[Rfam]
RNA sequence: UAACAGUCGCGGCGCGUACCUCCGAGUACGGAAGGGGUUAGUAAACCUUUGGCUAAGCCGGAAGGGAUAUUUGGAUGGCCGCAGUCCUACUCCCUUCCGGUUUUGCAGA
Numbered sequence: 001u002a003a004c005a006g007u008c009g010c011g012g013c014g015c016g017u018a019c020c021u022c023c024g025a026g027u028a029c030g031g032a033a034g035g036g037g038u039u040a041g042u043a044a045a046c047c048u049u050u051g052g053c054u055a056a057g058c059c060g061g062a063a064g065g066g067a068u069a070u071u072u073g074g075a076u077g078g079c080c081g082c083a084g085u086c087c088u089a090c091u092c093c094c095u096u097c098c099g100g101u102u103u104u105g106c107a108g109a
Stems, first nucleotide, its partner, number of pairs: 009082005016029004036047004048109004058100010073087004
RNA: RT-12 RNA
Organism: Desulfurivibrio alkaliphilus